[Rfam]
RNA sequence: GGGAUUUACUCCUGGAUGUUACCGAUACAUCCGGUCGAAACCGGACGGUGAUUGGUGUCUGAUUCGGUACGAAUCGGGAGCACCUCUGCGUAGGCUCGAAGAUCGCUCUUCGGUUUAAGACUCGCGCCGCCUACGGUCUUGGAUAGCCCCCGCCAGGCAGGGACCCCAAACUUGCCGGCCUGCCGAGGCAGGCCU
Numbered sequence: 001g002g003g004a005u006u007u008a009c010u011c012c013u014g015g016a017u018g019u020u021a022c023c024g025a026u027a028c029a030u031c032c033g034g035u036c037g038a039a040a041c042c043g044g045a046c047g048g049u050g051a052u053u054g055g056u057g058u059c060u061g062a063u064u065c066g067g068u069a070c071g072a073a074u075c076g077g078g079a080g081c082a083c084c085u086c087u088g089c090g091u092a093g094g095c096u097c098g099a100a101g102a103u104c105g106c107u108c109u110u111c112g113g114u115u116u117a118a119g120a121c122u123c124g125c126g127c128c129g130c131c132u133a134c135g136g137u138c139u140u141g142g143a144u145a146g147c148c149c150c151c152g153c154c155a156g157g158c159a160g161g162g163a164c165c166c167c168a169a170a171c172u173u174g175c176c177g178g179c180c181u182g183c184c185g186a187g188g189c190a191g192g193c194c195u
Stems, first nucleotide, its partner, number of pairs: 002166002005163003011157004023050002028047001030045006054084005059077007088153003093148004113144010177194006